[Rfam]
RNA sequence: GAAUGAGAUAGAGGCGCGAUGUGGUACAAGUAAUCUAUUAUAUAUGACUUGGCGCAGUAAUAGAUGAAAAGACCAGUCGCCGAAGUUUCGGCUUCCUGCCAAGAGGAGCCGUUGCUGGGCUGUUGCAGAAUAUGCACCAGACUGUCACUUUUUUUAAAGUGGAGAGCUAUCGUUAUG
Numbered sequence: 001g002a003a004u005g006a007g008a009u010a011g012a013g014g015c016g017c018g019a020u021g022u023g024g025u026a027c028a029a030g031u032a033a034u035c036u037a038u039u040a041u042a043u044a045u046g047a048c049u050u051g052g053c054g055c056a057g058u059a060a061u062a063g064a065u066g067a068a069a070a071g072a073c074c075a076g077u078c079g080c081c082g083a084a085g086u087u088u089c090g091g092c093u094u095c096c097u098g099c100c101a102a103g104a105g106g107a108g109c110c111g112u113u114g115c116u117g118g119g120c121u122g123u124u125g126c127a128g129a130a131u132a133u134g135c136a137c138c139a140g141a142c143u144g145u146c147a148c149u150u151u152u153u154u155u156a157a158a159g160u161g162g163a164g165a166g167c168u169a170u171c172g173u174u175a176u177g
Base pairs, nucleotide, nucleotide: 007171008170009169010168011167016080017079018078019077020076022075023074024073025072033065034064035063036062037061038060039059040058084116085115086114089111090110091109092108093107094106095105117143118142120140121139122138124136125135126134127133145162146161147160148159149158150157151156

Lysine riboswitch aptamer: a 177-nucleotide RNA from Defluviitalea raffinosedens. Pairs were carried over by alignment from the consensus structure, which is taken from published work. Rfam's curators write: Riboswitches are metabolite binding domains within certain messenger RNAs that serve as precision sensors for their corresponding targets.